Nucleotides: 086
Base pairs, nucleotide, nucleotide: 006081007080008079009078010077011076012075013074020031021030022029023028033066034065035064036062037061040060041059042058046053047052
Number, partner (000 for none) and nucleotide at each position: 001000u002000u003000g004000a005000a006081g007080g008079c009078u010077g011076g012075g013074u014000g015000a016000g017000a018000g019000a020031c021030c022029c023028u024000a025000a026000a027000a028023a029022g030021g031020g032000c033066g034065c035064c036062g037061a038000a039000g040060g041059a042058g043000c044000a045000a046053g047052g048000g049000g050000a051000a052047c053046u054000g055000a056000a057000a058042c059041u060040c061037u062036c063000a064035g065034g066033c067000a068000a069000a070000u071000a072000g073000a074013a075012u076011c077010c078009a079008g080007c081006u082000g083000g084000a085000c086000g
Shown here is an 86-nucleotide RNA from Halanaerobium hydrogeniformans, a member of the family "Glycine riboswitch aptamer". Gene Ontology term of the family: glycine biosynthetic process. Pairs were carried over by alignment from the consensus structure. Taxonomically the source falls in Halanaerobium (Bacteria, Bacillati, Clostridia, Halanaerobiales).